6S / SsrS RNA: a 182-nucleotide RNA from Acetivibrio ethanolgignens. E. coli 6S RNA was the first non coding RNA to be sequenced, but its function was unknown until recently. By type it is a non-coding RNA gene. The match comes from Rfam's covariance-model search (71 bits). Rfam 15.1 lists 5,006 matches to the family in 4,638 species.
RNA sequence: AGAUUCCUGGGAUGUUCGAUAACUCCUGAUAUUUUGAACCUACAUUACUUUAAAAGGGACACCUAUAUCAAUAAGAGUAUGUCAGGCCUCCGUAUGCAGUGGAAGACAGAGGGCUUAUGUGCGGUAACCCACCUAGCUUGGGCUAGGAGUCAAAAUUCAGGAACCGGCAUUUUGGGACUUUA
Numbered sequence: 001a002g003a004u005u006c007c008u009g010g011g012a013u014g015u016u017c018g019a020u021a022a023c024u025c026c027u028g029a030u031a032u033u034u035u036g037a038a039c040c041u042a043c044a045u046u047a048c049u050u051u052a053a054a055a056g057g058g059a060c061a062c063c064u065a066u067a068u069c070a071a072u073a074a075g076a077g078u079a080u081g082u083c084a085g086g087c088c089u090c091c092g093u094a095u096g097c098a099g100u101g102g103a104a105g106a107c108a109g110a111g112g113g114c115u116u117a118u119g120u121g122c123g124g125u126a127a128c129c130c131a132c133c134u135a136g137c138u139u140g141g142g143c144u145a146g147g148a149g150u151c152a153a154a155a156u157u158c159a160g161g162a163a164c165c166g167g168c169a170u171u172u173u174g175g176g177a178c179u180u181u182a
Stems, first nucleotide, its partner, number of pairs: 002180002005177011017166002031156007039147002056130003061125003067120001069119002073115001081107002087102002090099001